[Rfam]
A member of the RNA family "mir-8536 microRNA precursor family" from Plutella xylostella, 86 nucleotides long. Its family is annotated with miRNA-mediated post-transcriptional gene silencing and RISC complex in the Gene Ontology. It is one of the family's seed sequences. The base pairs follow the family's consensus structure, which was predicted with RNAalifold.

RNA sequence: AAUCUGACAUUAGUCAGUGACAUAGCUGGGAUAAGUUAGUGUGAAAUGAAACCUAUCUCAGCUAUGUCACUAUCUCGUGUCAGGAA
Numbered sequence: 001a002a003u004c005u006g007a008c009a010u011u012a013g014u015c016a017g018u019g020a021c022a023u024a025g026c027u028g029g030g031a032u033a034a035g036u037u038a039g040u041g042u043g044a045a046a047u048g049a050a051a052c053c054u055a056u057c058u059c060a061g062c063u064a065u066g067u068c069a070c071u072a073u074c075u076c077g078u079g080u081c082a083g084g085a086a
Stems, first nucleotide, its partner, number of pairs: 004083006012075002016071018035052003